A member of the RNA family "Small nucleolar RNA snR85" from Scytalidium sp. 3C, 162 nucleotides long. It is annotated as an H/ACA-box small nucleolar RNA. Clan: SNORA5 clan. The literature on the family includes a 2004 paper in Nucleic Acids Res by Schattner et al., "Genome-wide searching for pseudouridylation guide snoRNAs: analysis of the Saccharomyces cerevisiae genome".

RNA sequence: CAAUAGCACGGAUGUCAAAUUGCAAUUCGGUCUUUUCAAUGACUGUUGGUUGUGCCGAAGAUGUGCUGAAAUGAAUUUCUUUGCUAUUGUCCAGUGAUGGGACGCUAUCUACUAUCUUUCGCUCUCUUACGAAAGAUGGAAGUAAGUGGUGUGCAAACAUAA
Numbered sequence: 001c002a003a004u005a006g007c008a009c010g011g012a013u014g015u016c017a018a019a020u021u022g023c024a025a026u027u028c029g030g031u032c033u034u035u036u037c038a039a040u041g042a043c044u045g046u047u048g049g050u051u052g053u054g055c056c057g058a059a060g061a062u063g064u065g066c067u068g069a070a071a072u073g074a075a076u077u078u079c080u081u082u083g084c085u086a087u088u089g090u091c092c093a094g095u096g097a098u099g100g101g102a103c104g105c106u107a108u109c110u111a112c113u114a115u116c117u118u119u120c121g122c123u124c125u126c127u128u129a130c131g132a133a134a135g136a137u138g139g140a141a142g143u144a145a146g147u148g149g150u151g152u153g154c155a156a157a158c159a160u161a162a
Stems, first nucleotide, its partner, number of pairs: 004068007023052004081156004087145003096109005112139003117134002120131002

The source organism's lineage runs through Eukaryota, Fungi, saccharomyceta, sordariomyceta and Scytalidium. The match comes from Rfam's covariance-model search (39 bits).